[Rfam]
RNA sequence: GCGGCGGGCCGGAUGGCCGCUCCUGCCCCUUGUGGCAGGGGAGGAAAGUCCGGACUCCAGGAAGCAACGGCGCCGGGUAACGCCCGGCCGGGGAAACCCGAGGGAAAGCGCCACAGAGAAGAGACCGCUGUCGGCUGUCGCCGGCAGCAAGGGUGAAACGGUGGGGCAAGAGCCCACCGCGGGACGGGCAACCGGACCGGCACGGCAAGCCCCGCCGGGAGCAAUGCCGAAUAGGGACCUCAGAGGGCCUUCACGGGCCCGGGGAUGCUUCCUCCCAGAGGUCCGGGUUGGCAGCUAGAGCCUGCCGGUAACGGCAGGCCCAGAGGAAUGGCCAUCGAACCGCCUUCGGGCGGGGAACAGAAUCCGGCUUACAGGCCCGCCGCGCGC
Numbered sequence: 001g002c003g004g005c006g007g008g009c010c011g012g013a014u015g016g017c018c019g020c021u022c023c024u025g026c027c028c029c030u031u032g033u034g035g036c037a038g039g040g041g042a043g044g045a046a047a048g049u050c051c052g053g054a055c056u057c058c059a060g061g062a063a064g065c066a067a068c069g070g071c072g073c074c075g076g077g078u079a080a081c082g083c084c085c086g087g088c089c090g091g092g093g094a095a096a097c098c099c100g101a102g103g104g105a106a107a108g109c110g111c112c113a114c115a116g117a118g119a120a121g122a123g124a125c126c127g128c129u130g131u132c133g134g135c136u137g138u139c140g141c142c143g144g145c146a147g148c149a150a151g152g153g154u155g156a157a158a159c160g161g162u163g164g165g166g167c168a169a170g171a172g173c174c175c176a177c178c179g180c181g182g183g184a185c186g187g188g189c190a191a192c193c194g195g196a197c198c199g200g201c202a203c204g205g206c207a208a209g210c211c212c213c214g215c216c217g218g219g220a221g222c223a224a225u226g227c228c229g230a231a232u233a234g235g236g237a238c239c240u241c242a243g244a245g246g247g248c249c250u251u252c253a254c255g256g257g258c259c260c261g262g263g264g265a266u267g268c269u270u271c272c273u274c275c276c277a278g279a280g281g282u283c284c285g286g287g288u289u290g291g292c293a294g295c296u297a298g299a300g301c302c303u304g305c306c307g308g309u310a311a312c313g314g315c316a317g318g319c320c321c322a323g324a325g326g327a328a329u330g331g332c333c334a335u336c337g338a339a340c341c342g343c344c345u346u347c348g349g350g351c352g353g354g355g356a357a358c359a360g361a362a363u364c365c366g367g368c369u370u371a372c373a374g375g376c377c378c379g380c381c382g383c384g385c386g387c
Base pairs, nucleotide, nucleotide: 001383002382003381004380005379006378007377008376009375010374011372012336013335014334015333016332017331018330020041021040022039023038024037025036026035027034046370047369048368050367051366052365053364054363055221056220057219058218064270068217069216070215071214072213073087074086075085076084077083088102089100090099091098092097103212104211108210109209110206111205112204125152126151127148128147129146130145131144132143133142134141135140160178161177162176163175164174165173179201180199181198182197185194186193187192225293226292227291228290235284236283237282238281239280240279262276263275264274265273300319301318302317303316304315305314306313307312
This 387-nucleotide RNA sequence from Meinhardsimonia xiamenensis belongs to the Rfam family "Bacterial RNase P class A". By type it is a ribozyme.